[Rfam]
Rfam assigns this 447-nucleotide part of an RNA from Methanofollis fontis to the family "Archaeal large subunit ribosomal RNA". The base pairs follow the family's consensus structure, which is taken from published work. It scores 2911 bits against the family's covariance model.
RNA sequence: CCUUCCGAAACAUGCCGUAGCAUGACCUGGCCUGAGAUAGUCGGUGAGGUAGAGCACUGAUUGGGGACUCCGGGGAAGAAAUUCCUCGCUCUCCUGUCAAACUCCAAAUUCCCCGACGUCUGAGAAGGCUGGAAGUCCGCAUUACGGGGUAAGCUUGUAAUGCGUAAGGGAGACAACCCAGACCGUGGUUAAUGUCCCUCAAUGUAGGCUAAGUGUCAACACUGAAAGGCGUCCUAGGCCAAAAACAACUGGGAGGUGAGCUCAGAAGCAGCUAUCCUUCAAAAAGUGCGUAACAGCUUACCAGUCUAGGUUUAGGGCACUGAAAAUGGACGGGGCUAAAGCCUACUACAGAGACCACGGAGCACCGUAAGGUGAUCUAGUAGGAAGGCGUCCCGCAUGGGCAGAAGCAGGGUCGUGAGGUCCUGUGGACCGUGCGGGAAUGAGAAU
Numbered sequence: 001c002c003u004u005c006c007g008a009a010a011c012a013u014g015c016c017g018u019a020g021c022a023u024g025a026c027c028u029g030g031c032c033u034g035a036g037a038u039a040g041u042c043g044g045u046g047a048g049g050u051a052g053a054g055c056a057c058u059g060a061u062u063g064g065g066g067a068c069u070c071c072g073g074g075g076a077a078g079a080a081a082u083u084c085c086u087c088g089c090u091c092u093c094c095u096g097u098c099a100a101a102c103u104c105c106a107a108a109u110u111c112c113c114c115g116a117c118g119u120c121u122g123a124g125a126a127g128g129c130u131g132g133a134a135g136u137c138c139g140c141a142u143u144a145c146g147g148g149g150u151a152a153g154c155u156u157g158u159a160a161u162g163c164g165u166a167a168g169g170g171a172g173a174c175a176a177c178c179c180a181g182a183c184c185g186u187g188g189u190u191a192a193u194g195u196c197c198c199u200c201a202a203u204g205u206a207g208g209c210u211a212a213g214u215g216u217c218a219a220c221a222c223u224g225a226a227a228g229g230c231g232u233c234c235u236a237g238g239c240c241a242a243a244a245a246c247a248a249c250u251g252g253g254a255g256g257u258g259a260g261c262u263c264a265g266a267a268g269c270a271g272c273u274a275u276c277c278u279u280c281a282a283a284a285a286g287u288g289c290g291u292a293a294c295a296g297c298u299u300a301c302c303a304g305u306c307u308a309g310g311u312u313u314a315g316g317g318c319a320c321u322g323a324a325a326a327u328g329g330a331c332g333g334g335g336c337u338a339a340a341g342c343c344u345a346c347u348a349c350a351g352a353g354a355c356c357a358c359g360g361a362g363c364a365c366c367g368u369a370a371g372g373u374g375a376u377c378u379a380g381u382a383g384g385a386a387g388g389c390g391u392c393c394c395g396c397a398u399g400g401g402c403a404g405a406a407g408c409a410g411g412g413u414c415g416u417g418a419g420g421u422c423c424u425g426u427g428g429a430c431c432g433u434g435c436g437g438g439a440a441u442g443a444g445a446a447u
Base pairs, nucleotide, nucleotide: 001388002387003386004385005384006383011024012023013022014021015020026135027132028131029130030129031128032127036120037119038118040117041116042115043114044113046111047110052105053103054102059098060097061096063094064093065092066091067090072087073086074085075084076083077082139163140162141161142160143159144158145157146156147155168179169178170177183360184359185358186357187356188355189354193350194349195348202347204346205345206344207343208342209341227321228320231318232317233316234315235314236313237312238311239310240309248305249304250303251302252301254278255277256276259273260272261271279283284299288297289296361378362377363374364373365372366371389442391439392438393437394436395435396434397433398432399431400430407426408425409424410423411422412421413420414419